[Rfam]
RNA sequence: AUUAUCCUUCAGGGUUGGGUGAAAUUCCCUAUCGGCGGUAAAGCCCGCGAGCCGUAAAGCAGAUUCGGUUGAAUUCCGAAGCCGACAGUAUAGUCUGGAUGAGAGAAGGUGAUG
Numbered sequence: 001a002u003u004a005u006c007c008u009u010c011a012g013g014g015u016u017g018g019g020u021g022a023a024a025u026u027c028c029c030u031a032u033c034g035g036c037g038g039u040a041a042a043g044c045c046c047g048c049g050a051g052c053c054g055u056a057a058a059g060c061a062g063a064u065u066c067g068g069u070u071g072a073a074u075u076c077c078g079a080a081g082c083c084g085a086c087a088g089u090a091u092a093g094u095c096u097g098g099a100u101g102a103g104a105g106a107a108g109g110u111g112a113u114g
Stems, first nucleotide, its partner, number of pairs: 003112001006109005017029003031094002033084002035048004043082002051060002064080005086097003

Rfam assigns this 114-nucleotide RNA sequence from Desulfosporosinus acididurans to the family "FMN riboswitch aptamer (RFN element)". It scores 114 bits against the family's covariance model.